[Rfam]
Nucleotides: 086
Base pairs, nucleotide, nucleotide: 002085003084004083005082006081007079009077012074013073015071016070018068019067020066021065022064024063025062026061027060028059029058030057032056033055034054035053036052
Number, partner (000 for none) and nucleotide at each position: 001000g002085g003084u004083u005082g006081g007079c008000c009077c010000c011000u012074u013073g014000u015071g016070g017000a018068a019067g020066a021065c022064u023000a024063g025062u026061g027060a028059u029058u030057u031000u032056g033055u034054u035053g036052u037000a038000a039000g040000u041000u042000c043000a044000u045000u046000c047000a048000c049000a050000u051000g052036a053035c054034a055033a056032c057030a058029a059028g060027u061026c062025a063024c064022a065021g066020u067019c068018u069000g070016c071015c072000u073013c074012a075000c076000a077009g078000u079007g080000c081006c082005c083004a084003a085002c086000u
Rfam assigns this 86-nucleotide sequence from Geotrypetes seraphini to the family "mir-7 microRNA precursor family". This family represents the microRNA (miRNA) precursor mir-7. A reference for the family is Lagos-Quintana et al. (2001), "Identification of novel genes coding for small expressed RNAs", Science. Its family is annotated with RISC complex and miRNA-mediated post-transcriptional gene silencing in the Gene Ontology.